[Rfam]
RNA sequence: UGAAAAUAUUACUGUAAGUCACUCUGGAUAAAAGUGUCUGCUAAAUGACUACAA
Number, nucleotide and partner (000 for none) at each position: 001u000002g000003a000004a000005a000006a000007u000008a000009u000010u000011a000012c000013u043014g041015u040016a039017a000018g000019u000020c036021a035022c034023u033024c000025u031026g000027g000028a000029u000030a000031a025032a000033a023034g022035u021036g020037u000038c000039u016040g015041c014042u000043a013044a000045a000046u000047g000048a000049c000050u000051a000052c000053a000054a000
RNA: UnaL2 LINE 3' element